[Rfam]
RNA sequence: GGAGCAGCAACGAUGUUACGCAGCAGGGCAGUCGCCCUAAAACAAAGUUAGACUUUUGGGCGGCGCGAAUCUUG
Numbered sequence: 001g002g003a004g005c006a007g008c009a010a011c012g013a014u015g016u017u018a019c020g021c022a023g024c025a026g027g028g029c030a031g032u033c034g035c036c037c038u039a040a041a042a043c044a045a046a047g048u049u050a051g052a053c054u055u056u057u058g059g060g061c062g063g064c065g066c067g068a069a070u071c072u073u074g
Base pairs, nucleotide, nucleotide: 004071006017008015009014020056023053026037027036028035029034038050039049040048061067062066
Shown here is a 74-nucleotide RNA from Variovorax sp. JS1663, a member of the family "putative aminoglycoside riboswitch / attI site". The organism belongs to Variovorax, within Bacteria. About the family: Conserved RNA structure found upstream of the bacterial aminoglycosides antibiotic-resistant genes: aminoglycoside acetyl transferase (AAC) and aminoglycoside adenyl transferase (AAD). For this family Rfam cites "Riboswitch control of aminoglycoside antibiotic resistance" (Jia et al., Cell, 2013). A search with the family's covariance model found it, with a score of 74 bits. By type it is a cis-regulatory element. The family has 4 seed sequences and 39 matches in Rfam 15.1.